Source information
The family of this 100-nucleotide sequence from Paenibacillus bovis is "Purine riboswitch aptamer". It scores 76 bits against the family's covariance model. The organism belongs to Paenibacillus, within Bacteria. Gene Ontology term of the family: purine nucleobase biosynthetic process.

[Rfam]
RNA sequence: AUAAAAUCAUAAUUUAUUAUUCGUAUAUCCCCGAAAAUAGGGUUUGGGGGUCUCUACAAGGAACCGCAAAUUCCUGGCUACGAAUAGGAUGCUUUGGCAU
Numbered sequence: 001a002u003a004a005a006a007u008c009a010u011a012a013u014u015u016a017u018u019a020u021u022c023g024u025a026u027a028u029c030c031c032c033g034a035a036a037a038u039a040g041g042g043u044u045u046g047g048g049g050g051u052c053u054c055u056a057c058a059a060g061g062a063a064c065c066g067c068a069a070a071u072u073c074c075u076g077g078c079u080a081c082g083a084a085u086a087g088g089a090u091g092c093u094u095u096g097g098c099a100u
Stems, first nucleotide, its partner, number of pairs: 018086008029049007059075005